A member of the RNA family "L31-Actinobacteria ribosomal protein leader" from Streptomyces acidiscabies, 44 nucleotides long.
Clan: Ribosomal Protein L31 Leader clan.

[Rfam]
RNA sequence: UCGGCCCCGGUUCACGCCCCGCGCCGCGGAAGCGACCCGGUGCC
Numbered sequence: 001u002c003g004g005c006c007c008c009g010g011u012u013c014a015c016g017c018c019c020c021g022c023g024c025c026g027c028g029g030a031a032g033c034g035a036c037c038c039g040g041u042g043c044c
Base pairs, nucleotide, nucleotide: 003044004043005042007040008039009038010037015034016033017032019029020028021027022026